[Rfam]
A member of the RNA family "raiA RNA" from Pelosinus fermentans, 224 nucleotides long. NCBI's taxonomy places the organism under Bacteria, Bacillati, Bacillota, Pelosinus, Pelosinus fermentans.

Nucleotides: 224
Stems, first nucleotide, its partner, number of pairs: 001224009012215003015209005028195001030193001031041001033091007050084002058076003063071001082202001103188005108136005140181001142179002149173002155166003
Number, partner (000 for none) and nucleotide at each position: 001224a002223u003222u004221g005220c006219u007218u008217a009216g010000g011000u012215c013214u014213g015209u016208g017207g018206u019205u020000g021000a022000a023000a024000g025000u026000c027000g028195a029000g030193g031041c032000c033091a034090g035089u036088c037087g038086c039085a040000g041031g042000c043000g044000a045000a046000a047000c048000g049000a050084u051083c052000c053000a054000c055000a056000u057000a058076a059075g060074g061000a062000g063071u064000c065000c066000a067000a068000a069000g070000c071063g072000g073000c074060u075059c076058u077000g078000a079000g080000c081000a082202u083051g084050g085039u086038g087037c088036g089035g090034u091033u092000u093000a094000g095000g096000g097000g098000u099000a100000a101000g102000u103188c104187c105186u106185g107184c108136c109135g110134a111133g112132u113000u114000a115000u116000u117000a118000g119000c120000u121000a122000c123000g124000u125000c126000a127000g128000c129000u130000a131000g132112a133111u134110u135109c136108g137000a138000g139000a140181g141000u142179g143178g144000c145000a146000g147000u148000a149173g150172u151000g152000a153000g154000g155166a156165g157164a158000u159000u160000g161000a162000u163000u164157u165156c166155u167000u168000a169000u170000u171000a172150g173149c174000g175000a176000a177000c178143c179142u180000u181140c182000c183000a184107g185106c186105a187104g188103g189000c190000g191000g192000g193030u194000g195028u196000g197000g198000g199000g200000g201000c202082a203000a204000a205019g206018a207017c208016c209015a210000g211000g212000u213014c214013a215012g216009c217008u218007a219006a220005g221004c222003a223002g224001u

It is one of the family's seed sequences. By type it is a riboswitch.